The family of this 67-nucleotide RNA sequence from Cnephaeus nilssonii is "mir-9256 microRNA precursor family". NCBI's taxonomy places the organism under Eukaryota, Metazoa, Eumetazoa, Laurasiatheria, Cnephaeus.

RNA sequence: AUACACACUGGGUGGCCAGAUUAUUAUGAUCCCUGAACGCAUAAUAAUCUGGCCACUUAGUGUAUAU
Numbered sequence: 001a002u003a004c005a006c007a008c009u010g011g012g013u014g015g016c017c018a019g020a021u022u023a024u025u026a027u028g029a030u031c032c033c034u035g036a037a038c039g040c041a042u043a044a045u046a047a048u049c050u051g052g053c054c055a056c057u058u059a060g061u062g063u064a065u066a067u
Stems, first nucleotide, its partner, number of pairs: 005063013019049010